[Rfam]
RNA sequence: AAACUUGUUCGGUAGGUAAGGCUCCUACAGGGAUAUGGACUGUUGCCGCGAAAUGGUGGAGACACCAUCAGUUGGUUUGAACAGGGUACAUCGAGCGCAAGGUGUAUCAUAACACAGUUUCACCGCCCUGCAGAGUUAAAGCUCAAACGAAUGUACACGAGG
Numbered sequence: 001a002a003a004c005u006u007g008u009u010c011g012g013u014a015g016g017u018a019a020g021g022c023u024c025c026u027a028c029a030g031g032g033a034u035a036u037g038g039a040c041u042g043u044u045g046c047c048g049c050g051a052a053a054u055g056g057u058g059g060a061g062a063c064a065c066c067a068u069c070a071g072u073u074g075g076u077u078u079g080a081a082c083a084g085g086g087u088a089c090a091u092c093g094a095g096c097g098c099a100a101g102g103u104g105u106a107u108c109a110u111a112a113c114a115c116a117g118u119u120u121c122a123c124c125g126c127c128c129u130g131c132a133g134a135g136u137u138a139a140a141g142c143u144c145a146a147a148c149g150a151a152u153g154u155a156c157a158c159g160a161g162g
Stems, first nucleotide, its partner, number of pairs: 006157003010153001011148001013100001015143003020137003025133002028130005039118005045076004055066004085108003090103003
The family of this 162-nucleotide RNA sequence from Firmicutes bacterium CAG:94 is "M-box riboswitch aptamer (ykoK leader)".
The pairing is the family consensus, mapped onto this sequence.
Rfam's curators write: M-box riboswitch, also know as ykoK leader is described as a metaloregulatory RNA that sense divalent metals and function as a genetic control element of genes related to divalent metal transport in bacteria. It was first reported upstream of the B.subtilis ykoK gene and genes with related functions in other bacteria.
Lineage of the source: Bacteria > Bacillati > Bacillota.
Gene Ontology terms of the family: response to magnesium ion and regulation of gene expression.